[Rfam]
RNA sequence: CGACGUCUUCAGGGCGGGGUGGAAUUCCCCACCGGCGGUAGGUGCGCAAGCACGAGCCCGCGAGCGCUUCCAGCAACAUGCUGGAGGGUCAGCAGAUCCGGUUUGAUGCCGGGGCCGACGGUAAAGCCAGGUUCGCUGUACGGGGCCGGCUCAUAGUCCGGAUGAGAGAAGACGGUA
Dot-bracket structure: ...(((((((......(((.......)))..[((((((.................[[))))..((..........................))...(((((.......)))))]])).(((....]...............................))).......)))))))...
This 177-nucleotide sequence from Dyella tabacisoli belongs to the Rfam family "FMN riboswitch aptamer (RFN element)". The base pairs follow the family's consensus structure, which is taken from published work. Gene Ontology term of the family: FMN binding. Taxonomically the source falls in Dyella (Bacteria, Pseudomonadati, Gammaproteobacteria, Lysobacterales).